[Rfam]
RNA sequence: GCAGACUCACUCUGUCCCAGGCUGCUCAAUCCUGCCUGGUACUUUUUCAGUCUGCUAGAUUAAAAUUCAAAAUAUCACAAAUACAAGCCUUUUCUAAGGCAAGUGUCUGUGUAUUUUGAAACACUUAA
Numbered sequence: 001g002c003a004g005a006c007u008c009a010c011u012c013u014g015u016c017c018c019a020g021g022c023u024g025c026u027c028a029a030u031c032c033u034g035c036c037u038g039g040u041a042c043u044u045u046u047u048c049a050g051u052c053u054g055c056u057a058g059a060u061u062a063a064a065a066u067u068c069a070a071a072a073u074a075u076c077a078c079a080a081a082u083a084c085a086a087g088c089c090u091u092u093u094c095u096a097a098g099g100c101a102a103g104u105g106u107c108u109g110u111g112u113a114u115u116u117u118g119a120a121a122c123a124c125u126u127a128a
Stems, first nucleotide, its partner, number of pairs: 001055006014042002017039004022034001024032001067119007076111004
The family of this 128-nucleotide RNA from Atractosteus spatula is "Small nucleolar RNA SNORA77". Rfam describes the family as follows. ACA63 (SNORA77) is a member of the H/ACA class of snoRNAs that guide the sites of modification of uridines to pseudouridines. The family's consensus secondary structure was predicted with RNAalifold. Rfam links the family to the GO terms RNA processing and nucleolus.